[Rfam]
RNA: Small nucleolar RNA snoR97
RNA sequence: CUUUAAAUUUGGGUGUAGGGUCUGAUAAACUCAUAUAGUGUUAUGAGUGUUGUCAUCAGCUUCUUCUUUAGUAUCAACCAUGUUUGGAGUUAAAUAACAACACUACAUUC
Numbered sequence: 001c002u003u004u005a006a007a008u009u010u011g012g013g014u015g016u017a018g019g020g021u022c023u024g025a026u027a028a029a030c031u032c033a034u035a036u037a038g039u040g041u042u043a044u045g046a047g048u049g050u051u052g053u054c055a056u057c058a059g060c061u062u063c064u065u066c067u068u069u070a071g072u073a074u075c076a077a078c079c080a081u082g083u084u085u086g087g088a089g090u091u092a093a094a095u096a097a098c099a100a101c102a103c104u105a106c107a108u109u110c
Base pairs, nucleotide, nucleotide: 046104047103048102049101050100051099052098058091059090060089061088062087063086066082